[Rfam]
RNA sequence: UUGACUUGCAAAUGAUAAUGAUUAUUAUUGCAUCAGCGGGUCGCGAGACUCGCUGGAUAACCCGGAAGUCUUAGGUCGGCUUCCAGAUUAUCUCCUCAUCAGGCUAAUCACGGUUUUUGACCCGGCUUUUUGCCGGGUCUUUUUUUG
Numbered sequence: 001u002u003g004a005c006u007u008g009c010a011a012a013u014g015a016u017a018a019u020g021a022u023u024a025u026u027a028u029u030g031c032a033u034c035a036g037c038g039g040g041u042c043g044c045g046a047g048a049c050u051c052g053c054u055g056g057a058u059a060a061c062c063c064g065g066a067a068g069u070c071u072u073a074g075g076u077c078g079g080c081u082u083c084c085a086g087a088u089u090a091u092c093u094c095c096u097c098a099u100c101a102g103g104c105u106a107a108u109c110a111c112g113g114u115u116u117u118u119g120a121c122c123c124g125g126c127u128u129u130u131u132g133c134c135g136g137g138u139c140u141u142u143u144u145u146u147g
Base pairs, nucleotide, nucleotide: 034055035054036053037052038051039050040049041048042047061086064084065083066082067081069078094103095102096101119139120138121137122136123135124134125133126132
RNA: PrrF RNA
Organism: Pseudomonas syringae